[Rfam]
RNA sequence: AUCGUUCAAUCUACUAUGUAGAUCGGAAGUAAGCUUCUUGCUGAAGGAACGCGCA
Numbered sequence: 001a002u003c004g005u006u007c008a009a010u011c012u013a014c015u016a017u018g019u020a021g022a023u024c025g026g027a028a029g030u031a032a033g034c035u036u037c038u039u040g041c042u043g044a045a046g047g048a049a050c051g052c053g054c055a
Base pairs, nucleotide, nucleotide: 003051004050005049006048007047009023010022011021012020013019026052032042033041034040
Glutamine riboswitch aptamer (glnA leader): a 55-nucleotide sequence. The base pairs follow the family's consensus structure, which is taken from published work. Gene Ontology term of the family: glutamine binding. A reference for the family is Ames and Breaker (2011), "Bacterial aptamers that selectively bind glutamine", RNA Biol. The sequence is in the family's curated seed alignment.